The record is a 37-nucleotide RNA from Serpentinimonas raichei, which matches "CRISPR RNA direct repeat element" in Rfam.

RNA sequence: GAAUCGCCCGCCAGUAAUGGUGGGCGUGGAUUGAAAC
Numbered sequence: 001g002a003a004u005c006g007c008c009c010g011c012c013a014g015u016a017a018u019g020g021u022g023g024g025c026g027u028g029g030a031u032u033g034a035a036a037c
Base pairs, nucleotide, nucleotide: 005026006025007024008023009022010021011020012019013018
Dot-bracket structure: ....(((((((((....)))))))))...........
Taxonomically the source falls in Serpentinimonas (Bacteria, Pseudomonadati, Betaproteobacteria, Comamonadaceae).